[Rfam]
RNA sequence: AUAAAAUGAUGUCGUUGAGCGUAUAUAUAUUCAUAGCAUGGAUGAAUGUUUCUACCAACUGCCGUUUCAGUUGACUAUAGGUUCUCACUAAGGAGAA
Numbered sequence: 001a002u003a004a005a006a007u008g009a010u011g012u013c014g015u016u017g018a019g020c021g022u023a024u025a026u027a028u029a030u031u032c033a034u035a036g037c038a039u040g041g042a043u044g045a046a047u048g049u050u051u052c053u054a055c056c057a058a059c060u061g062c063c064g065u066u067u068c069a070g071u072u073g074a075c076u077a078u079a080g081g082u083u084c085u086c087a088c089u090a091a092g093g094a095g096a097a
Stems, first nucleotide, its partner, number of pairs: 018083003022079004029047006056073006